The family of this 447-nucleotide RNA from Lophiotrema nucula is "RNase MRP". Rfam describes the family as follows. RNase MRP is an enzymatically active ribonucleoprotein with two distinct roles in eukaryotes. In mitochondria it plays a direct role in the initiation of mitochondrial DNA replication. In the nucleus it is involved in precursor rRNA processing, where it cleaves the internal transcribed spacer 1 between 18S and 5.8S rRNAs. Despite distinct functions, RNase MRP has been shown to be evolutionarily related to RNase P. Like eukaryotic RNase P, RNase MRP is not catalytically active without associated protein subunits. The family's RNA type in Rfam is ribozyme.
RNA sequence: UCCUCGUUCAAAGAUUCGCACUUCGAAGCUUACACACAGAGUCACGGCGACAUCAGACCCCGCACGUCUCUCAUCAUGCUUUGAGGAAAGUCCCCGGACCAUUGGUUCUUCGGAAUCGUGCUCGCAGCAAGUCGGCGCCGCCACAGAAGCGCGGCCUCUCCCACUUUACUACUUGUACCGUUCCUUCACCGUUUGUACUCUUUCUCUGCUCGUCAUUCCGACUACUUCCAAAGGGACUGGCACCUGGACGAUGAUACGAGUCCGCUGGAACUGGAGGGAGCCAGAAGGGUGAUGGGUCGGCGCUGGAGAAGGCGUUGGUUCUGCGGAACGUGGUGUGGGCUGAGGGUCCUUUCGUCAAGUGAGUAGUUACGCGAAAGCUCUCCUCCUCAUGCAGCUAUAUGCAUUUGGGCGGAUUGCAACUCAAUGGGGCUUAUUCUCGAGACGAGG
Numbered sequence: 001u002c003c004u005c006g007u008u009c010a011a012a013g014a015u016u017c018g019c020a021c022u023u024c025g026a027a028g029c030u031u032a033c034a035c036a037c038a039g040a041g042u043c044a045c046g047g048c049g050a051c052a053u054c055a056g057a058c059c060c061c062g063c064a065c066g067u068c069u070c071u072c073a074u075c076a077u078g079c080u081u082u083g084a085g086g087a088a089a090g091u092c093c094c095c096g097g098a099c100c101a102u103u104g105g106u107u108c109u110u111c112g113g114a115a116u117c118g119u120g121c122u123c124g125c126a127g128c129a130a131g132u133c134g135g136c137g138c139c140g141c142c143a144c145a146g147a148a149g150c151g152c153g154g155c156c157u158c159u160c161c162c163a164c165u166u167u168a169c170u171a172c173u174u175g176u177a178c179c180g181u182u183c184c185u186u187c188a189c190c191g192u193u194u195g196u197a198c199u200c201u202u203u204c205u206c207u208g209c210u211c212g213u214c215a216u217u218c219c220g221a222c223u224a225c226u227u228c229c230a231a232a233g234g235g236a237c238u239g240g241c242a243c244c245u246g247g248a249c250g251a252u253g254a255u256a257c258g259a260g261u262c263c264g265c266u267g268g269a270a271c272u273g274g275a276g277g278g279a280g281c282c283a284g285a286a287g288g289g290u291g292a293u294g295g296g297u298c299g300g301c302g303c304u305g306g307a308g309a310a311g312g313c314g315u316u317g318g319u320u321c322u323g324c325g326g327a328a329c330g331u332g333g334u335g336u337g338g339g340c341u342g343a344g345g346g347u348c349c350u351u352u353c354g355u356c357a358a359g360u361g362a363g364u365a366g367u368u369a370c371g372c373g374a375a376a377g378c379u380c381u382c383c384u385c386c387u388c389a390u391g392c393a394g395c396u397a398u399a400u401g402c403a404u405u406u407g408g409g410c411g412g413a414u415u416g417c418a419a420c421u422c423a424a425u426g427g428g429g430c431u432u433a434u435u436c437u438c439g440a441g442a443c444g445a446g447g
Stems, first nucleotide, its partner, number of pairs: 002447006008440002011437001015375005023084007039072003044067002088432003092429004105132003205339005213333004226328004311321002378416001381413003